[Rfam]
RNA: SAM riboswitch aptamer (S box leader)
RNA sequence: UACCUAUCCAGAGAGGUGGAGGGACAGGCCCGAUGAAACCCGGCAACCAGCAUAAGCAUGGUGCCAAUACCUGCAGUUAAACUGUAAUGAUGGGGU
Numbered sequence: 001u002a003c004c005u006a007u008c009c010a011g012a013g014a015g016g017u018g019g020a021g022g023g024a025c026a027g028g029c030c031c032g033a034u035g036a037a038a039c040c041c042g043g044c045a046a047c048c049a050g051c052a053u054a055a056g057c058a059u060g061g062u063g064c065c066a067a068u069a070c071c072u073g074c075a076g077u078u079a080a081a082c083u084g085u086a087a088u089g090a091u092g093g094g095g096u
Stems, first nucleotide, its partner, number of pairs: 003094006013041001015040003021031003025073004042065004047061002050057002069088001074084004